[Rfam]
RNA: SAM riboswitch aptamer (S box leader)
Organism: Lihuaxuella thermophila
RNA sequence: CUCUUAUCCAGAGUGGCGGAGGGACUGGCCCGAUGAAGCCCGGCAACCGGUUGGAGGAAUUCCAAUGAGGUGCCAAUUCCUGCAGAGAAGUUUUCUCUGAGAGAUGAGAG
Number, nucleotide and partner (000 for none) at each position: 001c110002u109003c108004u107005u106006a105007u104008c103009c000010a000011g000012a000013g041014u000015g040016g039017c038018g000019g000020a000021g031022g030023g029024a000025c082026u000027g080028g079029c023030c022031c021032g000033a000034u000035g000036a000037a000038g017039c016040c015041c013042g074043g073044c072045a071046a000047c070048c069049g000050g066051u065052u064053g063054g000055a000056g000057g000058a000059a000060u000061u000062c000063c053064a052065a051066u050067g000068a000069g048070g047071u045072g044073c043074c042075a000076a000077u000078u102079c028080c027081u000082g025083c099084a098085g097086a096087g095088a094089a000090g000091u000092u000093u000094u088095c087096u086097c085098u084099g083100a000101g000102a078103g008104a007105u006106g005107a004108g003109a002110g001